The record is a 152-nucleotide sequence from Paenochrobactrum gallinarii, which matches "FMN riboswitch aptamer (RFN element)" in Rfam. Pairs were carried over by alignment from the consensus structure, which is taken from published work. NCBI's taxonomy places the organism under Bacteria, Pseudomonadota, Alphaproteobacteria, Brucellaceae, Paenochrobactrum.

[Rfam]
RNA sequence: UCCAGUUCUCAGGGCGGGGUGAAAUUCCCCACCGGCGGUAACGAAUAAAACUUAUUCGAAAGCCCGCGAGCGCCUGACAUUUCUUGUCAGGGUCAGCAGAUUCGGUGUAACUCCGAAGCCGACGGUCAUAGUCCGGAUGAGAGAGAGCGUGG
Numbered sequence: 001u002c003c004a005g006u007u008c009u010c011a012g013g014g015c016g017g018g019g020u021g022a023a024a025u026u027c028c029c030c031a032c033c034g035g036c037g038g039u040a041a042c043g044a045a046u047a048a049a050a051c052u053u054a055u056u057c058g059a060a061a062g063c064c065c066g067c068g069a070g071c072g073c074c075u076g077a078c079a080u081u082u083c084u085u086g087u088c089a090g091g092g093u094c095a096g097c098a099g100a101u102u103c104g105g106u107g108u109a110a111c112u113c114c115g116a117a118g119c120c121g122a123c124g125g126u127c128a129u130a131g132u133c134c135g136g137a138u139g140a141g142a143g144a145g146a147g148c149g150u151g152g
Stems, first nucleotide, its partner, number of pairs: 005148006017029003031132002033121002035067004062119002070097002101117005123135003